[Rfam]
This 100-nucleotide part of an RNA from candidate division MSBL1 archaeon SCGC-AAA259A05 belongs to the Rfam family "Archaeal large subunit ribosomal RNA". A search with the family's covariance model found it, with a score of 2766 bits. Pairs were carried over by alignment from the consensus structure, which is taken from published work. Taxonomically the source falls in candidate division MSBL1 (Archaea, Methanobacteriati, Methanobacteriota).
RNA sequence: GGUGUAGCCUUAAAGAAAGGAGCCUUCUCGAAGGAAUCCGUGGCGACGCGGUAGUACGAGGGAAGGGGAUCAGGGUUGCGCCUACCGUUUGGAAAUACGG
Numbered sequence: 001g002g003u004g005u006a007g008c009c010u011u012a013a014a015g016a017a018a019g020g021a022g023c024c025u026u027c028u029c030g031a032a033g034g035a036a037u038c039c040g041u042g043g044c045g046a047c048g049c050g051g052u053a054g055u056a057c058g059a060g061g062g063a064a065g066g067g068g069a070u071c072a073g074g075g076u077u078g079c080g081c082c083u084a085c086c087g088u089u090u091g092g093a094a095a096u097a098c099g100g
Stems, first nucleotide, its partner, number of pairs: 001082010015071002023066007033057001038051005085100004